[Rfam]
RNA sequence: AAGGGUUUUUGCUGCUGACGUAUAAAAUGGAGUACCAUGAUGUGGCAAGAGCUGAUAGAGAAGCCGGACGUCUGGGCGACAUUU
Numbered sequence: 001a002a003g004g005g006u007u008u009u010u011g012c013u014g015c016u017g018a019c020g021u022a023u024a025a026a027a028u029g030g031a032g033u034a035c036c037a038u039g040a041u042g043u044g045g046c047a048a049g050a051g052c053u054g055a056u057a058g059a060g061a062a063g064c065c066g067g068a069c070g071u072c073u074g075g076g077c078g079a080c081a082u083u084u
Stems, first nucleotide, its partner, number of pairs: 004053009015042001017072005027038004063077003
Shown here is an 84-nucleotide RNA sequence from Blautia sp. An46, a member of the family "ZMP/ZTP riboswitch aptamer (pfl RNA motif)". It scores 45 bits against the family's covariance model. The base pairs follow the family's consensus structure, which is taken from published work.